[Rfam]
DUF2693 RNA: a 194-nucleotide sequence.
RNA sequence: GGUCUUUGACAUAUUUGAUACGGUAACAACAGAGAUAAUCAACGUGGGCGACGAGCCCACAAGUGACUAACAAUAUAGCUUGCAAGCUUAGACCUAUCGUGCUAAGCGCUGACCCAGCAUAAGCGGUGAAGCCCCUAGAGGGUGAUGAACGCAGAGGCUGGCAACCCCGCCCCUCGCAAAGGGCUUGCAAGCGC
Numbered sequence: 001g002g003u004c005u006u007u008g009a010c011a012u013a014u015u016u017g018a019u020a021c022g023g024u025a026a027c028a029a030c031a032g033a034g035a036u037a038a039u040c041a042a043c044g045u046g047g048g049c050g051a052c053g054a055g056c057c058c059a060c061a062a063g064u065g066a067c068u069a070a071c072a073a074u075a076u077a078g079c080u081u082g083c084a085a086g087c088u089u090a091g092a093c094c095u096a097u098c099g100u101g102c103u104a105a106g107c108g109c110u111g112a113c114c115c116a117g118c119a120u121a122a123g124c125g126g127u128g129a130a131g132c133c134c135c136u137a138g139a140g141g142g143u144g145a146u147g148a149a150c151g152c153a154g155a156g157g158c159u160g161g162c163a164a165c166c167c168c169g170c171c172c173c174u175c176g177c178a179a180a181g182g183g184c185u186u187g188c189a190a191g192c193g194c
Base pairs, nucleotide, nucleotide: 044060045059046058047057048056078192079191080190081189082188083187084186085185086107087106088105089104090103091102114161115160116159117158118157169184170183171182172181

By type it is a small RNA. Pairs were carried over by alignment from the consensus structure, which is taken from published work.